Source information: The record is a 122-nucleotide RNA from Asarcornis scutulata, which matches "Small nucleolar RNA SNORA32" in Rfam. The base pairs follow the family's consensus structure, which was predicted with RNAfold. By type it is an H/ACA-box small nucleolar RNA. Gene Ontology terms of the family: nucleolus and RNA processing. The source organism's lineage runs through Eukaryota, Deuterostomia, Sarcopterygii, Archelosauria and Asarcornis.
RNA sequence: UGGUCAUUACCAAAGCUGCUAGGAUGUUAAGUUUCUGGUAGGCUGUGGACAUGACCACAAAGCAAGUCCAUCAGAUUCUUGAACUGCCACCUUGCAUGGCACUAGAUCUGCUGGGAAUAAAG
Numbered sequence: 001u002g003g004u005c006a007u008u009a010c011c012a013a014a015g016c017u018g019c020u021a022g023g024a025u026g027u028u029a030a031g032u033u034u035c036u037g038g039u040a041g042g043c044u045g046u047g048g049a050c051a052u053g054a055c056c057a058c059a060a061a062g063c064a065a066g067u068c069c070a071u072c073a074g075a076u077u078c079u080u081g082a083a084c085u086g087c088c089a090c091c092u093u094g095c096a097u098g099g100c101a102c103u104a105g106a107u108c109u110g111c112u113g114g115g116a117a118u119a120a121a122g
Stems, first nucleotide, its partner, number of pairs: 003055005010048003026043003067115004074108004085101003